[Rfam]
RNA: MIR2275 microRNA precursor family
RNA sequence: GGGUUGCAGGUGAGAAUUGGAUGGAACUGAACCAUCUUUUCUCCUCCAUGGUUAGUGAGGGUUCAGUUUCCUCCAAUAUCUCACCUUCGACCA
Numbered sequence: 001g002g003g004u005u006g007c008a009g010g011u012g013a014g015a016a017u018u019g020g021a022u023g024g025a026a027c028u029g030a031a032c033c034a035u036c037u038u039u040u041c042u043c044c045u046c047c048a049u050g051g052u053u054a055g056u057g058a059g060g061g062u063u064c065a066g067u068u069u070c071c072u073c074c075a076a077u078a079u080c081u082c083a084c085c086u087u088c089g090a091c092c093a
Stems, first nucleotide, its partner, number of pairs: 004090003008086001011083004016077006023070008032061002